Glycine riboswitch aptamer: a 95-nucleotide sequence from Polymorphobacter multimanifer.
Its family is annotated with glycine biosynthetic process in the Gene Ontology.
It scores 61 bits against the family's covariance model.
The pairing is the family consensus, mapped onto this sequence.
[Rfam]
RNA sequence: GGCGCCAGCGCGGGAGAGUGUGGCGGGCAACCGUCGCCGCCGAAGGAGCAAGCCGCCCCCGGAAUCUCUCAGGCACAACGGACCGCGCUGGCGUA
Numbered sequence: 001g002g003c004g005c006c007a008g009c010g011c012g013g014g015a016g017a018g019u020g021u022g023g024c025g026g027g028c029a030a031c032c033g034u035c036g037c038c039g040c041c042g043a044a045g046g047a048g049c050a051a052g053c054c055g056c057c058c059c060c061g062g063a064a065u066c067u068c069u070c071a072g073g074c075a076c077a078a079c080g081g082a083c084c085g086c087g088c089u090g091g092c093g094u095a
Stems, first nucleotide, its partner, number of pairs: 006090008020037004039074003042070002046068003053061001